[Rfam]
RNA sequence: CAGCAUGUUUCCAAGGGCUAUGGCUGGUUGCAGCCAUGGGAUCUCCAACUGCAUGUUAGAGCAACCUGAAGAGACGGACAGCUCAGUUCAGCUCAGGACCUGCAGCUGCCACUCACCUUUCCUAUAAUG
Dot-bracket structure: ..........((...((((.((......)).))))..))............................(.((((.......((.(((.............))).....)).......)))).).......

About this RNA: A member of the RNA family "Small nucleolar RNA SNORA44" from Jaculus jaculus, 129 nucleotides long. A search with the family's covariance model found it, with a score of 131 bits. ACA44 is a member of the H/ACA class of snoRNA that guide the sites of modification of uridines to pseudouridines. On this family, see Huttenhofer et al., EMBO J 2001: "RNomics: an experimental approach that identifies 201 candidates for novel, small, non-messenger RNAs in mouse". Gene Ontology terms of the family: nucleolus and RNA processing. The family's RNA type in Rfam is H/ACA-box small nucleolar RNA. Pairs were carried over by alignment from the consensus structure, which was predicted with PFOLD. Taxonomically the source falls in Jaculus (Eukaryota, Opisthokonta, Gnathostomata, Dipnotetrapodomorpha).